[Rfam]
RNA: TPP riboswitch aptamer (THI element)
Organism: Bacillus sp. AFS041924
RNA sequence: AGAAAAAUGUGGAGGUGCCAGUGUUGCUGGCUGAGAUAUCGUCCUUAAGACGUCGACUCUUAGAACCUGAUCUGGGUGAUGCCAGCGUAGGGAACAGUAUCUCUUUUAGA
Numbered sequence: 001a002g003a004a005a006a007a008u009g010u011g012g013a014g015g016u017g018c019c020a021g022u023g024u025u026g027c028u029g030g031c032u033g034a035g036a037u038a039u040c041g042u043c044c045u046u047a048a049g050a051c052g053u054c055g056a057c058u059c060u061u062a063g064a065a066c067c068u069g070a071u072c073u074g075g076g077u078g079a080u081g082c083c084a085g086c087g088u089a090g091g092g093a094a095c096a097g098u099a100u101c102u103c104u105u106u107u108a109g110a
Base pairs, nucleotide, nucleotide: 006098008096009095010094011060012059013058014057017031018030019029020028021027038053039052042049066091067090068089069088072085073084074083075082